[Rfam]
RNA sequence: AUAUCUUUCUCCACCUUUUGGCUAAGAUCAAGUGUAGUAUGUGUUUAUUAGCUUAAUAUCUGAUACGUAGGCUAAUGGCUCCUAUGAUAUUAAAUUUAUUUUUUGAGGGUGAGAACCUUUCAUAGUAGCUUGCUUCAGGGGAGUAUCGAGCUUGACUCGAGCUCAGAAAUGAGCUUGAAUUGAGUUUUUGAA
Numbered sequence: 001a002u003a004u005c006u007u008u009c010u011c012c013a014c015c016u017u018u019u020g021g022c023u024a025a026g027a028u029c030a031a032g033u034g035u036a037g038u039a040u041g042u043g044u045u046u047a048u049u050a051g052c053u054u055a056a057u058a059u060c061u062g063a064u065a066c067g068u069a070g071g072c073u074a075a076u077g078g079c080u081c082c083u084a085u086g087a088u089a090u091u092a093a094a095u096u097u098a099u100u101u102u103u104u105g106a107g108g109g110u111g112a113g114a115a116c117c118u119u120u121c122a123u124a125g126u127a128g129c130u131u132g133c134u135u136c137a138g139g140g141g142a143g144u145a146u147c148g149a150g151c152u153u154g155a156c157u158c159g160a161g162c163u164c165a166g167a168a169a170u171g172a173g174c175u176u177g178a179a180u181u182g183a184g185u186u187u188u189u190g191a192a
Stems, first nucleotide, its partner, number of pairs: 008027003014021002046065006067082001069080002072077001111147002114144001117141002125136001127134002150185006157178006

This 192-nucleotide RNA from Hibiscus syriacus belongs to the Rfam family "U2 spliceosomal RNA". Rfam's curators write: U2 is a small nuclear RNA (snRNA) component of the spliceosome (involved in pre-mRNA splicing). Complementary binding between U2 snRNA (in an area lying towards the 5' end but 3' to hairpin I) and the branchpoint sequence (BPS) of the intron results the bulging out of an unpaired adenosine, on the BPS, which initiates a nucleophilic attack at the intronic 5' splice site, thus starting the first of two transesterification reactions that mediate splicing. The organism belongs to Hibiscus, within Eukaryota. It is annotated as a spliceosomal small nuclear RNA. The family has 208 seed sequences and 71,512 matches in Rfam 15.1.